[Rfam]
RNA sequence: CCGGCACAGUUAAUGGCACUGGAAGAAUUCACGGGGUUUUUCAAUACAACCCGUGAUCUCUUAGUGGCAUCUAUGGUGCGGG
Numbered sequence: 001c002c003g004g005c006a007c008a009g010u011u012a013a014u015g016g017c018a019c020u021g022g023a024a025g026a027a028u029u030c031a032c033g034g035g036g037u038u039u040u041u042c043a044a045u046a047c048a049a050c051c052c053g054u055g056a057u058c059u060c061u062u063a064g065u066g067g068c069a070u071c072u073a074u075g076g077u078g079c080g081g082g
Base pairs, nucleotide, nucleotide: 004079005078006077007076009074010073013070014069015068017066018065020063021062022061023059025058026057029056030055031054032053033052034051
About this RNA:
Rfam assigns this 82-nucleotide sequence from Drosophila pseudoobscura to the family "mir-263 microRNA precursor family". Pairs were carried over by alignment from the consensus structure, which was predicted with RNAalifold. The family has 52 seed sequences and 368 matches in Rfam 15.1.